Rfam assigns this 98-nucleotide RNA sequence from Erysipelotrichaceae bacterium RD49 to the family "THF (Tetrahydrofolate) riboswitch aptamer".
Gene Ontology term of the family: tetrahydrofolate metabolic process.
Tetrahydrofolate (THF) riboswitch was first reported for Ames et al. as an RNA motif in 5' untranslated (5'-UTR)regions of folate transport and biosynthesis genes in Firmicutes genomes.
Lineage of the source: Bacteria > Bacillota > Erysipelotrichia > Erysipelotrichales > Erysipelotrichaceae.
[Rfam]
RNA sequence: GACAGAGUAGGAAAACAGGCGUUAAGUGCAUCGGCAACGGGGAGUUGAGCCGAUGACGAAAAGAUAUCCUUGCGGUCUGUUUUUCGCAUCCCGCUGCA
Numbered sequence: 001g002a003c004a005g006a007g008u009a010g011g012a013a014a015a016c017a018g019g020c021g022u023u024a025a026g027u028g029c030a031u032c033g034g035c036a037a038c039g040g041g042g043a044g045u046u047g048a049g050c051c052g053a054u055g056a057c058g059a060a061a062a063g064a065u066a067u068c069c070u071u072g073c074g075g076u077c078u079g080u081u082u083u084u085c086g087c088a089u090c091c092c093g094c095u096g097c098a
Base pairs, nucleotide, nucleotide: 003096004095005094010085011084012083013082014081015080016079017078018077019076020074021073022072026057027056029055030054031053032052033051034050035049040091041090042089044087061071062070063069